[Rfam]
RNA sequence: UGAUGCCUAAUGGAUGUAACAGCAACUCCAUGUGGAAGGUUUCAUCCUGUUUCCAGUGGGGCUGCUGUUAUUUUUGAUAGGCUGU
Numbered sequence: 001u002g003a004u005g006c007c008u009a010a011u012g013g014a015u016g017u018a019a020c021a022g023c024a025a026c027u028c029c030a031u032g033u034g035g036a037a038g039g040u041u042u043c044a045u046c047c048u049g050u051u052u053c054c055a056g057u058g059g060g061g062c063u064g065c066u067g068u069u070a071u072u073u074u075u076g077a078u079a080g081g082c083u084g085u
Stems, first nucleotide, its partner, number of pairs: 010078002012075001016071008026061006033055003
RNA: mir-194 microRNA precursor family
Organism: Chelonia mydas